Rfam assigns this 53-nucleotide RNA from Striga asiatica to the family "Plastid-atpF group II-D1 intron". Plastid atpF is a non-coding RNA (ncRNA) recognised in plastids. It has been reported in the intron group II-D1 region of ATP synthase (atpF) genes. The source organism's lineage runs through Eukaryota, Mesangiospermae, asterids, Buchnereae and Striga. The base pairs follow the family's consensus structure, which was predicted with LocARNA. The match comes from Rfam's covariance-model search (55 bits).
[Rfam]
RNA sequence: GAAUAUUUUAUCGAUAUAGAACAUUCGUCUCGAUAAAGUGAUUUGAACCGCUU
Numbered sequence: 001g002a003a004u005a006u007u008u009u010a011u012c013g014a015u016a017u018a019g020a021a022c023a024u025u026c027g028u029c030u031c032g033a034u035a036a037a038g039u040g041a042u043u044u045g046a047a048c049c050g051c052u053u
Base pairs, nucleotide, nucleotide: 011033012032013031014030016028017027